[Rfam]
RNA sequence: UGAGUCGGUCAGACGGCCGCGUCGGUGCCCUCGUGGCACCGCCGAGGAACGUCCGGGCUCCACAGGGCAAGGUGGUGGGUAACGCCCACCCGGGGUGACCCGCGGGACAGUGCCACAGAGAACAGACCGCCUCCCACGGCCUCGGCCGUGGGCGGUAAGGGUGAAACGGUGGUGUAAGAGACCACCAGCGGGCCAGGUGACUGGUCCGGCUAGGUAAACCCCACCUGGAGCAAGGUCAGACAGGAAGCGUUCGAGGGCUGCUCGCCCGAGCUUCCGGGUAGACCGCUGGAGGCGUGCGGCAACGUACGUCGUAGAUGGAUGGCCGUCACCCGUGCGGGGGCAACCGCGCGCGGGGACAGAACCCGGCGUACCGACCGACUCAUCCG
Numbered sequence: 001u002g003a004g005u006c007g008g009u010c011a012g013a014c015g016g017c018c019g020c021g022u023c024g025g026u027g028c029c030c031u032c033g034u035g036g037c038a039c040c041g042c043c044g045a046g047g048a049a050c051g052u053c054c055g056g057g058c059u060c061c062a063c064a065g066g067g068c069a070a071g072g073u074g075g076u077g078g079g080u081a082a083c084g085c086c087c088a089c090c091c092g093g094g095g096u097g098a099c100c101c102g103c104g105g106g107a108c109a110g111u112g113c114c115a116c117a118g119a120g121a122a123c124a125g126a127c128c129g130c131c132u133c134c135c136a137c138g139g140c141c142u143c144g145g146c147c148g149u150g151g152g153c154g155g156u157a158a159g160g161g162u163g164a165a166a167c168g169g170u171g172g173u174g175u176a177a178g179a180g181a182c183c184a185c186c187a188g189c190g191g192g193c194c195a196g197g198u199g200a201c202u203g204g205u206c207c208g209g210c211u212a213g214g215u216a217a218a219c220c221c222c223a224c225c226u227g228g229a230g231c232a233a234g235g236u237c238a239g240a241c242a243g244g245a246a247g248c249g250u251u252c253g254a255g256g257g258c259u260g261c262u263c264g265c266c267c268g269a270g271c272u273u274c275c276g277g278g279u280a281g282a283c284c285g286c287u288g289g290a291g292g293c294g295u296g297c298g299g300c301a302a303c304g305u306a307c308g309u310c311g312u313a314g315a316u317g318g319a320u321g322g323c324c325g326u327c328a329c330c331c332g333u334g335c336g337g338g339g340g341c342a343a344c345c346g347c348g349c350g351c352g353g354g355g356a357c358a359g360a361a362c363c364c365g366g367c368g369u370a371c372c373g374a375c376c377g378a379c380u381c382a383u384c385c386g
Base pairs, nucleotide, nucleotide: 001382002381003380004379005378006377007376008375009374010373012327013326014325015324016323017322018321020044021043023041024040025039026038027037028036049369050368051367053366054365055364056363057362058230059229060228061227065263066262067261068260070226071225072224073223074222075089076088077087078086079085090104091102092101093100094099105221106220110219111218112215113214114213127160128159129156130155131154133152134151135150136149137148138147139146140145168186169185170184171183172182173181188210189208190207191206192205193204194203195202196201234284235283236282237281243275244274245273246272247271248270255267256266257265258264291310292309293308294307295306296305297304298303
This 386-nucleotide sequence from Oerskovia sp. Root918 belongs to the Rfam family "Bacterial RNase P class A".
By type it is a ribozyme.
The organism belongs to Oerskovia, within Bacteria.
The match comes from Rfam's covariance-model search (306 bits).